Source information
The record is a 92-nucleotide sequence from Flavonifractor sp. An10, which matches "Selenocysteine transfer RNA" in Rfam. The base pairs follow the family's consensus structure, which is taken from published work. The match comes from Rfam's covariance-model search (67 bits).
[Rfam]
RNA sequence: GGGGGCGGAAGGGCCGCUGGUGGGCCCCCCGGUCUUCAAAACCGACGGGGACGGUGCUCCCGUCCUGGUGUGUUCGAUUCGCACCCGCCCCC
Numbered sequence: 001g002g003g004g005g006c007g008g009a010a011g012g013g014c015c016g017c018u019g020g021u022g023g024g025c026c027c028c029c030c031g032g033u034c035u036u037c038a039a040a041a042c043c044g045a046c047g048g049g050g051a052c053g054g055u056g057c058u059c060c061c062g063u064c065c066u067g068g069u070g071u072g073u074u075c076g077a078u079u080c081g082c083a084c085c086c087g088c089c090c091c092c
Base pairs, nucleotide, nucleotide: 001092002091003090004089005088006087007086008085011027012026013025014024015023017022030044031043032042033041048066049065050064051063052062069083070082071081072080